Source information
Rfam assigns this 80-nucleotide sequence from Oncorhynchus tshawytscha to the family "mir-17 microRNA precursor family". About the family: This family represents the microRNA (miRNA) precursor mir-17, family, which includes mir-20, mir-91, and mir-103. miRNAs are transcribed as ~70nt precursors (modelled here) and subsequently processed by the Dicer enzyme to give a ~22nt product. In this case the mature sequence comes from the 3' arm of the precursor. The extents of the hairpin precursors are not generally known and are estimated based on hairpin prediction. The match comes from Rfam's covariance-model search (63 bits). Taxonomically the source falls in Oncorhynchus (Eukaryota, Euteleostomi, Actinopterygii, Salmoninae). A reference for the family is Lagos-Quintana et al. (2001), "Identification of novel genes coding for small expressed RNAs", Science.
RNA sequence: CCUGGGUGUCAAAAGUGCUGUUUGUGCAGGUAGCUGACUCACCAGCCCUACUGCAAAACCAGCACUUCCCGACACCCUGA
Numbered sequence: 001c002c003u004g005g006g007u008g009u010c011a012a013a014a015g016u017g018c019u020g021u022u023u024g025u026g027c028a029g030g031u032a033g034c035u036g037a038c039u040c041a042c043c044a045g046c047c048c049u050a051c052u053g054c055a056a057a058a059c060c061a062g063c064a065c066u067u068c069c070c071g072a073c074a075c076c077c078u079g080a
Stems, first nucleotide, its partner, number of pairs: 004077004009072002013067008022058002025055003029052005